The family of this 212-nucleotide RNA from Aurantimonas sp. Leaf443 is "permuted transfer-messenger RNA".
RNA sequence: GGCGAUAAACGGCCGAUGUAAUAAACCUUUCGGACCCGGGGGCAGUACCCGGCGCCUCCACCUGAACCGCCCGGCCGGGCGUUUGAGGCGGGGGCGAAGCAGGAUCGACGAGGGCGUAAAGAUCGGACUUUUGCUCGGCAUUGUACCGCCGUUAUCGGGCUGAAAAAGUAGUUGCCAACGACAACUAUGCGGAAGCGCGUCUCGCAGCCUAA
Numbered sequence: 001g002g003c004g005a006u007a008a009a010c011g012g013c014c015g016a017u018g019u020a021a022u023a024a025a026c027c028u029u030u031c032g033g034a035c036c037c038g039g040g041g042g043c044a045g046u047a048c049c050c051g052g053c054g055c056c057u058c059c060a061c062c063u064g065a066a067c068c069g070c071c072c073g074g075c076c077g078g079g080c081g082u083u084u085g086a087g088g089c090g091g092g093g094g095c096g097a098a099g100c101a102g103g104a105u106c107g108a109c110g111a112g113g114g115c116g117u118a119a120a121g122a123u124c125g126g127a128c129u130u131u132u133g134c135u136c137g138g139c140a141u142u143g144u145a146c147c148g149c150c151g152u153u154a155u156c157g158g159g160c161u162g163a164a165a166a167a168g169u170a171g172u173u174g175c176c177a178a179c180g181a182c183a184a185c186u187a188u189g190c191g192g193a194a195g196c197g198c199g200u201c202u203c204g205c206a207g208c209c210u211a212a
Stems, first nucleotide, its partner, number of pairs: 001135005014125004026114003030111003036052005053096007136151004
Taxonomically the source falls in Aurantimonas (Bacteria, Pseudomonadati, Alphaproteobacteria, Aurantimonadaceae). The family's RNA type in Rfam is non-coding RNA gene. A search with the family's covariance model found it, with a score of 139 bits. The literature on the family includes a 1996 paper in RNA by Williams and Bartel, "Phylogenetic analysis of tmRNA secondary structure".